[Rfam]
Shown here is a 201-nucleotide sequence from Amphibalanus amphitrite, a member of the family "RNase MRP".
RNA sequence: GCGCGCUCCGAAGCGGUACUUUCGGGCUUACGGGGCCACGUGCCCAUCCUCAGCCUGGGGAAAGUCCCCGCACACGGGGCCGAGAGGGCCGCGGGUUCAGCCCGGUGAGCCGGCGGCAAUUACUGCUCCGGCGGUGAGCUGCUGGUAGUUGUGUGGUCAAAGUUCUGUACCAAACAGAAUGGGGCUUACUCUCGGAGCGUG
Numbered sequence: 001g002c003g004c005g006c007u008c009c010g011a012a013g014c015g016g017u018a019c020u021u022u023c024g025g026g027c028u029u030a031c032g033g034g035g036c037c038a039c040g041u042g043c044c045c046a047u048c049c050u051c052a053g054c055c056u057g058g059g060g061a062a063a064g065u066c067c068c069c070g071c072a073c074a075c076g077g078g079g080c081c082g083a084g085a086g087g088g089c090c091g092c093g094g095g096u097u098c099a100g101c102c103c104g105g106u107g108a109g110c111c112g113g114c115g116g117c118a119a120u121u122a123c124u125g126c127u128c129c130g131g132c133g134g135u136g137a138g139c140u141g142c143u144g145g146u147a148g149u150u151g152u153g154u155g156g157u158c159a160a161a162g163u164u165c166u167g168u169a170c171c172a173a174a175c176a177g178a179a180u181g182g183g184g185c186u187u188a189c190u191c192u193c194g195g196a197g198c199g200u201g
Base pairs, nucleotide, nucleotide: 002201003200004199005198006197007196008195009194010193011192015171016170017169018168019167022058023057024056025055026054027053028052033045034044035043036042062187063186064185066184067183068182069181078090079089080088081087091106092105094103095102108146110144113142114141115140116139117138122135123134124133125132
Dot-bracket structure: .((((((((((...(((((..(((((((....((((.....))))......)))))))...[[[.[[[[........((((.....))))((.((......)).)).(.(..(((((....((((......))))..))))).).)....................))))).........]]]]]]]....))))))))))

It scores 90 bits against the family's covariance model. RNase MRP is an enzymatically active ribonucleoprotein with two distinct roles in eukaryotes. In mitochondria it plays a direct role in the initiation of mitochondrial DNA replication. In the nucleus it is involved in precursor rRNA processing, where it cleaves the internal transcribed spacer 1 between 18S and 5.8S rRNAs. Despite distinct functions, RNase MRP has been shown to be evolutionarily related to RNase P. Like eukaryotic RNase P, RNase MRP is not catalytically active without associated protein subunits. The base pairs follow the family's consensus structure, which is taken from published work. Lineage of the source: Eukaryota > Metazoa > Thoracicalcarea > Amphibalaninae > Amphibalanus. Rfam classes the family as a ribozyme.